[Rfam]
RNA sequence: AUUUUAUACAGAAGCGGCGAGAGAUUAGGCUCUACGACCCGCUGGCAACCUUCGACCGCGCGAAAGGUGCCACUUCCUACCCCUCGGCCCCUGGCCGUUGCGGGAAAUAUAACCG
Dot-bracket structure: ...(((((....(((((...(((..[[[[)))......)))))((((.((((((......)))).))))))...(]]]](((...................)))..))))))...
Numbered sequence: 001a002u003u004u005u006a007u008a009c010a011g012a013a014g015c016g017g018c019g020a021g022a023g024a025u026u027a028g029g030c031u032c033u034a035c036g037a038c039c040c041g042c043u044g045g046c047a048a049c050c051u052u053c054g055a056c057c058g059c060g061c062g063a064a065a066g067g068u069g070c071c072a073c074u075u076c077c078u079a080c081c082c083c084u085c086g087g088c089c090c091c092u093g094g095c096c097g098u099u100g101c102g103g104g105a106a107a108u109a110u111a112a113c114c115g
Stems, first nucleotide, its partner, number of pairs: 004112005013043005021032003026079004044071004049067002051064004075107001080104003
Annotation:
SAM riboswitch aptamer (S box leader): a 115-nucleotide RNA sequence from Hymenobacter sp. PAMC 26628. Taxonomically the source falls in Hymenobacter (Bacteria, Pseudomonadati, Cytophagia, Hymenobacteraceae). The base pairs follow the family's consensus structure, which is taken from published work. Rfam describes the family as follows. The SAM riboswitch is found upstream of a number of genes which code for proteins involved in methionine or cysteine biosynthesis in Gram-positive bacteria. Its family is annotated with regulation of gene expression in the Gene Ontology.